[Rfam]
RNA: Gammaprotebacteria rimP leader
RNA sequence: CAACUGCCGUUGGCAGACAGGGUUCAGAUUCAUGCAAAUAGCCCCGCUGGUCCGGGGCUUUUUGUUGUUUUUAAACUGAUUUGCGCGUCAUUUUUAAGCAAAUCAGGUAGUUGGGCUUUAUGCCCUUUUUUC
Numbered sequence: 001c002a003a004c005u006g007c008c009g010u011u012g013g014c015a016g017a018c019a020g021g022g023u024u025c026a027g028a029u030u031c032a033u034g035c036a037a038a039u040a041g042c043c044c045c046g047c048u049g050g051u052c053c054g055g056g057g058c059u060u061u062u063u064g065u066u067g068u069u070u071u072u073a074a075a076c077u078g079a080u081u082u083g084c085g086c087g088u089c090a091u092u093u094u095u096a097a098g099c100a101a102a103u104c105a106g107g108u109a110g111u112u113g114g115g116c117u118u119u120a121u122g123c124c125c126u127u128u129u130u131u132c
Base pairs, nucleotide, nucleotide: 038061040059041058042057043056044055045054046053113125114124115123116122